[Rfam]
RNA sequence: UCAGAUCUCUAUCGUUUCUUACGGUAAAGAAAAACCAGCAGUACUGGGCCAUGACGAAGCGGCUUACGCUAAAAACCGUCGUGCCGUACUGGUUUACUAAGAGCAUCACAUGAUUGGUAACUUCAGAACUCAUCUAUUG
Numbered sequence: 001u002c003a004g005a006u007c008u009c010u011a012u013c014g015u016u017u018c019u020u021a022c023g024g025u026a027a028a029g030a031a032a033a034a035c036c037a038g039c040a041g042u043a044c045u046g047g048g049c050c051a052u053g054a055c056g057a058a059g060c061g062g063c064u065u066a067c068g069c070u071a072a073a074a075a076c077c078g079u080c081g082u083g084c085c086g087u088a089c090u091g092g093u094u095u096a097c098u099a100a101g102a103g104c105a106u107c108a109c110a111u112g113a114u115u116g117g118u119a120a121c122u123u124c125a126g127a128a129c130u131c132a133u134c135u136a137u138u139g
Stems, first nucleotide, its partner, number of pairs: 001047004007041002014035004019030002054138001057135001059133001062130001065127001068124001075118002078115001079113005086106002089103002

A member of the RNA family "CpoB/ybgF ICR thermometer" from Citrobacter sp. JGM124, 139 nucleotides long. By type it is an RNA thermoregulator. Gene Ontology terms of the family: regulation of translation and response to temperature stimulus. The organism belongs to Citrobacter, within Bacteria. For this family Rfam cites "Temperature-responsive in vitro RNA structurome of Yersinia pseudotuberculosis" (Righetti et al., Proc Natl Acad Sci U S A, 2016). Imprinting control region from upstream of cpoB/ybgF (tol/pal system protein).